The family of this 86-nucleotide sequence from Sphenodon punctatus is "Small nucleolar RNA SNORD121A". The source organism's lineage runs through Eukaryota, Eumetazoa, Bilateria, Craniata and Sphenodon.

[Rfam]
RNA sequence: GUCCAGACAACGGUGAUGUGGUAUUUUCCAAGCACAUAUCUGAGAGCUCUGUGUGGAAACCAAACUAUUUCUGAGUGGUUUUGGAC
Numbered sequence: 001g002u003c004c005a006g007a008c009a010a011c012g013g014u015g016a017u018g019u020g021g022u023a024u025u026u027u028c029c030a031a032g033c034a035c036a037u038a039u040c041u042g043a044g045a046g047c048u049c050u051g052u053g054u055g056g057a058a059a060c061c062a063a064a065c066u067a068u069u070u071c072u073g074a075g076u077g078g079u080u081u082u083g084g085a086c
Stems, first nucleotide, its partner, number of pairs: 001086006008078001010076002
The base pairs follow the family's consensus structure, which was predicted with WAR.